[Rfam]
RNA: small nucleolar RNA snoR135
RNA sequence: AAAGCAGGGAUAGUGUGUAUCAGUGUUGUGCUUUGAUCAAUGUACUUUUCUGAAAGUGUUCCCUUGCAAUAUUAAUUUGAGAAAAUGGGCAGUUGUGUUUCAAUUUUUAUUGUUGAAAAUCACAACAAUCAUUUUCCCGACAUCU
Numbered sequence: 001a002a003a004g005c006a007g008g009g010a011u012a013g014u015g016u017g018u019a020u021c022a023g024u025g026u027u028g029u030g031c032u033u034u035g036a037u038c039a040a041u042g043u044a045c046u047u048u049u050c051u052g053a054a055a056g057u058g059u060u061c062c063c064u065u066g067c068a069a070u071a072u073u074a075a076u077u078u079g080a081g082a083a084a085a086u087g088g089g090c091a092g093u094u095g096u097g098u099u100u101c102a103a104u105u106u107u108u109a110u111u112g113u114u115g116a117a118a119a120u121c122a123c124a125a126c127a128a129u130c131a132u133u134u135u136c137c138c139g140a141c142a143u144c145u
Base pairs, nucleotide, nucleotide: 004067005066006065007063008062009061010060015045016044017043018042019041020040078139079138081136082135083134084133085132086131087130088129092126093125094124095123